A member of the RNA family "Saccharopolyspora sRNA 350" from Streptomyces sp. SID8352, 506 nucleotides long. By type it is an antisense RNA. Pairs were carried over by alignment from the consensus structure, which was predicted with RNAfold. The match comes from Rfam's covariance-model search (151 bits).
[Rfam]
RNA sequence: CGGGCGGUGUACUCCCAGAUGGCCCCCGGGUCGAGCAGGGCGCCGUCACCGAAGUAGGCGCCGUCGGCCAGGACCCCGAGCACGGCGUCGUCGCCGUAGGGGCCGGUGCCGACCUUCUCCACCUUGCCGUGCGCCAGCAGGUAGACGGCGUCGGCCUCGGUGCCGAAGGACGCGAUCACCUCGCCGGGCGCGAACUCGCGCUGCUGGCAGCGGCGGGCCAGCUCGGCGAGCGCCCCCUCGUCCUCGUAGGACCGCAGGGCGGGCAGUUCGCCCAGCUCCGCGGGGAUGACCUCGACGCGGUCGCCGGUCUUCACAAACGUCACCCGGCCGUCGCCGAUGGCGUACGUCAGGCGCCGGUUCACCCGGUACGUGCCGCCCUGGACGUCCACCCAGGGAAGGGUGCGCAGCAGCCAGCGCGAGCUGAUCUCCUGCAUCUGCGGCACGGACUUGGUCGUGGUGGCCAGGUUCCGCGCUGCCGCCGUGCCGAGGCUCUGCUGCGGCCUCGU
Numbered sequence: 001c002g003g004g005c006g007g008u009g010u011a012c013u014c015c016c017a018g019a020u021g022g023c024c025c026c027c028g029g030g031u032c033g034a035g036c037a038g039g040g041c042g043c044c045g046u047c048a049c050c051g052a053a054g055u056a057g058g059c060g061c062c063g064u065c066g067g068c069c070a071g072g073a074c075c076c077c078g079a080g081c082a083c084g085g086c087g088u089c090g091u092c093g094c095c096g097u098a099g100g101g102g103c104c105g106g107u108g109c110c111g112a113c114c115u116u117c118u119c120c121a122c123c124u125u126g127c128c129g130u131g132c133g134c135c136a137g138c139a140g141g142u143a144g145a146c147g148g149c150g151u152c153g154g155c156c157u158c159g160g161u162g163c164c165g166a167a168g169g170a171c172g173c174g175a176u177c178a179c180c181u182c183g184c185c186g187g188g189c190g191c192g193a194a195c196u197c198g199c200g201c202u203g204c205u206g207g208c209a210g211c212g213g214c215g216g217g218c219c220a221g222c223u224c225g226g227c228g229a230g231c232g233c234c235c236c237c238u239c240g241u242c243c244u245c246g247u248a249g250g251a252c253c254g255c256a257g258g259g260c261g262g263g264c265a266g267u268u269c270g271c272c273c274a275g276c277u278c279c280g281c282g283g284g285g286a287u288g289a290c291c292u293c294g295a296c297g298c299g300g301u302c303g304c305c306g307g308u309c310u311u312c313a314c315a316a317a318c319g320u321c322a323c324c325c326g327g328c329c330g331u332c333g334c335c336g337a338u339g340g341c342g343u344a345c346g347u348c349a350g351g352c353g354c355c356g357g358u359u360c361a362c363c364c365g366g367u368a369c370g371u372g373c374c375g376c377c378c379u380g381g382a383c384g385u386c387c388a389c390c391c392a393g394g395g396a397a398g399g400g401u402g403c404g405c406a407g408c409a410g411c412c413a414g415c416g417c418g419a420g421c422u423g424a425u426c427u428c429c430u431g432c433a434u435c436u437g438c439g440g441c442a443c444g445g446a447c448u449u450g451g452u453c454g455u456g457g458u459g460g461c462c463a464g465g466u467u468c469c470g471c472g473c474u475g476c477c478g479c480c481g482u483g484c485c486g487a488g489g490c491u492c493u494g495c496u497g498c499g500g501c502c503u504c505g506u
Stems, first nucleotide, its partner, number of pairs: 006390004011385002015381002018328001021325002027319002031315001035312001037310003041306002045304002048301004054233002059228005065111004072103001074102004082097005118221001122217002127212001130209001132206002135203003141197001143196002149192002154189004159184001161178002236294001240290003244286002252283004257278004262269001329342004351379001353377001355375003360372003391431005397425001400422001403418003407415001437476004443470004447465006477505002480499003487496002